[Rfam]
The record is a 284-nucleotide RNA from Sciurus vulgaris, which matches "Mason-Pfizer monkey virus packaging signal" in Rfam.

RNA sequence: UGGUGCCCAACGGUGUGGCAUUGGAUAUGGGGGAAUUCGUGAGGGAAGAGGCGUCUAAGUGUUCGGCCGAAGGAAAAAAAAGUGAAAUUCAGUUCGACAAAGAUCACUGCAGGAGCCUGCUGCGUCGUUCUUAAAGGUACAGUAGAGCCUAAGUAUGGGACAAGAAUUAAGUAAGCAUAAAGUUUUUGUUAAGCAAUUAAAAGAAGCUUUAAAGACACGGGGAGUAAAGGUUAAGAGUAAUGAUCUUUUUAAGUUUUUUGAACUUAUUAAGAACACCUGUCCAU
Dot-bracket structure: .....(((......(((........)))..)))....(.(.......).).....................................(.(..((........(.(..(((((.......)))))..).)...)).)).....(.(..((((....)))).).)....(((((.................................)).)))......((((((((..((((((.......))))))......))))))))........(.(.((....)).).)

Taxonomically the source falls in Sciurus (Eukaryota, Bilateria, Dipnotetrapodomorpha, Glires). Gene Ontology term of the family: viral genome packaging. The match comes from Rfam's covariance-model search (173 bits). The family's consensus secondary structure was predicted with PFOLD. By type it is a cis-regulatory element. About the family: This family represents a group of sequences that are related to the Mason-Pfizer monkey virus (MPMV) packaging signal. The packaging signal is located in the 5' UTR and is required for specific RNA encapsidation.